Group II catalytic intron D1-D4-3: a 171-nucleotide RNA sequence from Holdemanella biformis.
The pairing is the family consensus, mapped onto this sequence.
From the family's description: Group II introns are found in rRNA, tRNA and mRNA of organelles in fungi, plants and protists, and also in mRNA in bacteria.
[Rfam]
RNA sequence: UUGGCAGUGAUGUCAUGGGUGAAGGAAGUGGUGUAGCAAUUCUUUUGAGCGUACGCACAGAAACUUGAUGAGGCUAAAUGGUGGAUGAGAUUGCAUUACAAAUCGAAGUCCAAAAGGUAAACGUAAAACCAAGACAGUAAAUCAAGACGUUGUGAAAGAAAUAGGACCCAU
Numbered sequence: 001u002u003g004g005c006a007g008u009g010a011u012g013u014c015a016u017g018g019g020u021g022a023a024g025g026a027a028g029u030g031g032u033g034u035a036g037c038a039a040u041u042c043u044u045u046u047g048a049g050c051g052u053a054c055g056c057a058c059a060g061a062a063a064c065u066u067g068a069u070g071a072g073g074c075u076a077a078a079u080g081g082u083g084g085a086u087g088a089g090a091u092u093g094c095a096u097u098a099c100a101a102a103u104c105g106a107a108g109u110c111c112a113a114a115a116g117g118u119a120a121a122c123g124u125a126a127a128a129c130c131a132a133g134a135c136a137g138u139a140a141a142u143c144a145a146g147a148c149g150u151u152g153u154g155a156a157a158g159a160a161a162u163a164g165g166a167c168c169c170a171u
Stems, first nucleotide, its partner, number of pairs: 002015005028171004037164001041159005047153001048151005064146005073138003079131004083111004089104004